RNA sequence: CCUUGUAGUCUUCCACAGCUUUCUUGAACUGCGUAUCUUUCCUUCUGGAAUGGAAGAUUAGGGUUAGGGUUGCAGUUCAAUAAAGCUGUGGGAAAUUACAGGGA
Numbered sequence: 001c002c003u004u005g006u007a008g009u010c011u012u013c014c015a016c017a018g019c020u021u022u023c024u025u026g027a028a029c030u031g032c033g034u035a036u037c038u039u040u041c042c043u044u045c046u047g048g049a050a051u052g053g054a055a056g057a058u059u060a061g062g063g064u065u066a067g068g069g070u071u072g073c074a075g076u077u078c079a080a081u082a083a084a085g086c087u088g089u090g091g092g093a094a095a096u097u098a099c100a101g102g103g104a
Stems, first nucleotide, its partner, number of pairs: 003101005013091003017087006024080004029075005
MIR396 microRNA precursor family: a 104-nucleotide RNA from Dendrobium nobile. NCBI's taxonomy places the organism under Eukaryota, Euphyllophyta, Mesangiospermae, Orchidaceae, Dendrobium. It scores 82 bits against the family's covariance model. Rfam 15.1 lists 744 matches to the family in 207 species. The base pairs follow the family's consensus structure, which was predicted with WAR.